[Rfam]
RNA sequence: GCCAGCGGUUGAGGGUGUCCUGAUAUUUAUCGGGACUGAGAUUACACCCCUUGAACUUGAUCCGGACUAUACCGGCGAAAGGAAAUCGUUGGCUUUAAAA
Numbered sequence: 001g002c003c004a005g006c007g008g009u010u011g012a013g014g015g016u017g018u019c020c021u022g023a024u025a026u027u028u029a030u031c032g033g034g035a036c037u038g039a040g041a042u043u044a045c046a047c048c049c050c051u052u053g054a055a056c057u058u059g060a061u062c063c064g065g066a067c068u069a070u071a072c073c074g075g076c077g078a079a080a081g082g083a084a085a086u087c088g089u090u091g092g093c094u095u096u097a098a099a100a
Stems, first nucleotide, its partner, number of pairs: 006088005011050001013048002016044001017036007056081003062075004
The record is a 100-nucleotide RNA from Fodinibius halophilus, which matches "TPP riboswitch aptamer (THI element)" in Rfam. Its family is annotated with thiamine pyrophosphate binding in the Gene Ontology.